RNA sequence: ACAACAUUAGGACCGUCGGUCUACCAAGUAAUAUCACCCGCUAGGUGGAAGAUCUUCUCUUCGCCGU
Numbered sequence: 001a002c003a004a005c006a007u008u009a010g011g012a013c014c015g016u017c018g019g020u021c022u023a024c025c026a027a028g029u030a031a032u033a034u035c036a037c038c039c040g041c042u043a044g045g046u047g048g049a050a051g052a053u054c055u056u057c058u059c060u061u062c063g064c065c066g067u
Base pairs, nucleotide, nucleotide: 005063010058011057012056015053016052017051020049021048022047023046024045025044027042028041029040
RNA: mir-2774 microRNA precursor family